[Rfam]
Overview: Shown here is a 125-nucleotide sequence from Bucco capensis, a member of the family "Small nucleolar RNA ACA64". The literature on the family includes a 2006 paper in RNA by Schattner et al., "A computational screen for mammalian pseudouridylation guide H/ACA RNAs". The source organism's lineage runs through Eukaryota, Deuterostomia, Dipnotetrapodomorpha, Sauropsida and Bucco. By type it is an H/ACA-box small nucleolar RNA.

RNA sequence: ACAGUCUGAAAAUCACAUGGGGUCUUCUGUGGUCCCUGGUGCUAUAACUGUGCCGAUAGCAGAGGGAGCAUUAAACUCAUUGCCCACGGUAAAGUAUGGGGAGUGGUACCCAUGUUCCUAGAAUC
Numbered sequence: 001a002c003a004g005u006c007u008g009a010a011a012a013u014c015a016c017a018u019g020g021g022g023u024c025u026u027c028u029g030u031g032g033u034c035c036c037u038g039g040u041g042c043u044a045u046a047a048c049u050g051u052g053c054c055g056a057u058a059g060c061a062g063a064g065g066g067a068g069c070a071u072u073a074a075a076c077u078c079a080u081u082g083c084c085c086a087c088g089g090u091a092a093a094g095u096a097u098g099g100g101g102a103g104u105g106g107u108a109c110c111c112a113u114g115u116u117c118c119u120a121g122a123a124u125c
Stems, first nucleotide, its partner, number of pairs: 006050001008048001010045001014041003021034004065118001067116005077106005086095002